[Rfam]
RNA sequence: GAUCAAGAGAUCCAGGCGCGAAGCUCUGGCUGGCCUGGGCGGCAACCCUCUCACCGUGGUGGGGUGCCCCAGAUGACGAUCCGACCGCUGCGCCCCCGCACGCGGUAAGUGCGGUGC
Number, nucleotide and partner (000 for none) at each position: 001g081002a080003u079004c078005a000006a000007g000008a000009g040010a000011u000012c038013c037014a036015g035016g034017c033018g000019c000020g000021a000022a031023g030024c000025u000026c000027u000028g000029g000030c023031u022032g000033g017034c016035c015036u014037g013038g012039g000040c009041g068042g067043c066044a000045a000046c064047c063048c062049u000050c059051u058052c000053a000054c000055c000056g000057u000058g051059g050060u000061g000062g048063g047064g046065u000066g043067c042068c041069c000070c000071a000072g000073a000074u000075g000076a000077c000078g004079a003080u002081c001082c000083g000084a106085c105086c104087g103088c102089u100090g099091c098092g097093c000094c000095c000096c000097c092098g091099c090100a089101c000102g088103c087104g086105g085106u084107a000108a000109g000110u000111g000112c000113g000114g000115u000116g000117c000
RNA: SAM (S-adenosyl methionine) riboswitch aptamer
Organism: Rothia santali